[Rfam]
RNA sequence: AAGUAUUCUGUAUUUUUUUGUUGGCUGGUGUGAUCCAGUGGUGAGCUGAUGCUAAACCCCAGCUUAGUAAACAGGGUUGUUCUGCAUGUGGAUGACUCUGUGCCAAAAGCAUGGGAUCAGAA
Dot-bracket structure: ......((.(((.........)).).))............................(((.(((((.(....((((((..(((.......)))..))))))...)..)))).)))).......
RNA: Small nucleolar RNA SNORA65